[Rfam]
Nucleotides: 079
Stems, first nucleotide, its partner, number of pairs: 013047001015046004021079002024076001028074002030042003052067006
Number, partner (000 for none) and nucleotide at each position: 001000g002000g003000u004000u005000g006000c007000a008000a009000g010000u011000u012000u013047g014000a015046g016045g017044c018043c019000a020000u021079a022078g023000g024076a025000a026000a027000a028074a029073a030042a031041c032040a033000c034000u035000c036000a037000u038000c039000a040032u041031g042030u043018g044017g045016c046015c047013c048000u049000g050000u051000c052067a053066g054065a055064u056063u057062c058000c059000a060000c061000u062057g063056a064055a065054u066053c067052u068000a069000u070000g071000a072000a073029u074028u075000c076024u077000g078022c079021u